[Rfam]
RNA sequence: GGCGUAAAGCGGAUGUAGGUGGCUUUGUAAGUCAGAUGUGAAAGCCCAGGGCUCAACCCUGGAAGUGCAUUUGAUACUGCGAAGCUUGAGUGUCGGAGAGGUUACUAGAAUUGUUGGUGUAGUGGUGAAAUACGUAGAUAUCAACAGGAAUACCGGAGGCGAAGGCGGGUAACUGGCCGAACACUGACACUGAGAUCCGAAAGCGUGGGGAUCAAACAGGAUUAGAUACCCUGGUAGUCCACGCCGUAAACGAUGGAUACUUGUUGUUGGAGGUAUUGACCCCUUCAGUGACGAAGCUAACGCGUUAAGUAUCCCGCCUGGGGAGUACGGUCGCAAGAUUAAAACUCAAAGAAAU
Number, nucleotide and partner (000 for none) at each position: 001g318002g317003c316004g000005u000006a000007a000008a000009g315010c000011g198012g197013a196014u195015g000016u192017a000018g191019g190020u189021g000022g085023c084024u083025u082026u081027g080028u079029a000030a078031g077032u074033c073034a072035g071036a070037u069038g068039u067040g066041a000042a000043a000044g000045c000046c062047c061048a060049g059050g058051g057052c000053u000054c000055a000056a000057c051058c050059c049060u048061g047062g046063a000064a000065g000066u040067g039068c038069a037070u036071u035072u034073g033074a032075u000076a000077c031078u030079g028080c027081g026082a025083a024084g023085c022086u000087u000088g000089a185090g184091u183092g000093u180094c179095g178096g177097a000098g000099a000100g174101g173102u172103u171104a170105c169106u168107a151108g000109a000110a000111u147112u146113g145114u144115u143116g142117g141118u140119g000120u000121a000122g133123u132124g131125g000126u000127g000128a000129a000130a000131u124132a123133c122134g000135u000136a000137g000138a000139u000140a118141u117142c116143a115144a114145c113146a112147g111148g000149a000150a000151u107152a000153c000154c000155g000156g000157a000158g000159g166160c165161g000162a000163a000164g000165g160166c159167g000168g106169g105170u104171a103172a102173c101174u100175g000176g000177c096178c095179g094180a093181a000182c000183a091184c090185u089186g000187a000188c000189a020190c019191u018192g016193a000194g000195a014196u013197c012198c011199g000200a000201a000202a000203g244204c243205g242206u241207g240208g239209g000210g000211a000212u000213c237214a000215a000216a000217c233218a232219g231220g230221a000222u000223u000224a000225g000226a000227u000228a000229c000230c220231c219232u218233g217234g000235u000236a000237g213238u000239c208240c207241a206242c205243g204244c203245c000246g000247u000248a000249a000250a000251c000252g000253a000254u000255g314256g313257a312258u311259a310260c309261u000262u000263g292264u291265u290266g289267u288268u287269g286270g285271a284272g283273g282274u000275a000276u000277u000278g000279a000280c000281c000282c273283c272284u271285u270286c269287a268288g267289u266290g265291a264292c263293g000294a000295a000296g303297c302298u000299a000300a000301c000302g297303c296304g000305u000306u000307a000308a000309g260310u259311a258312u257313c256314c255315c009316g003317c002318c001319u000320g347321g346322g345323g000324a000325g000326u000327a000328c000329g340330g339331u338332c337333g000334c000335a000336a000337g332338a331339u330340u329341a000342a000343a000344a000345c322346u321347c320348a000349a000350a000351g000352a000353a000354a000355u000